[Rfam]
RNA sequence: CUUCACCGACCCCAACCACAACGGGCUCUCCGCCGAACGAUCCCGCCCAUAGGUCGCCAGAAUCGCCUGCGCCUC
Numbered sequence: 001c002u003u004c005a006c007c008g009a010c011c012c013c014a015a016c017c018a019c020a021a022c023g024g025g026c027u028c029u030c031c032g033c034c035g036a037a038c039g040a041u042c043c044c045g046c047c048c049a050u051a052g053g054u055c056g057c058c059a060g061a062a063u064c065g066c067c068u069g070c071g072c073c074u075c
Stems, first nucleotide, its partner, number of pairs: 016024002031071003038065002043060001045058001047056001049054001

The family of this 75-nucleotide RNA from Streptomyces sp. SAJ15 is "ASpks TB sRNA". By type it is an antisense RNA. Pairs were carried over by alignment from the consensus structure, which is taken from published work. A search with the family's covariance model found it, with a score of 77 bits.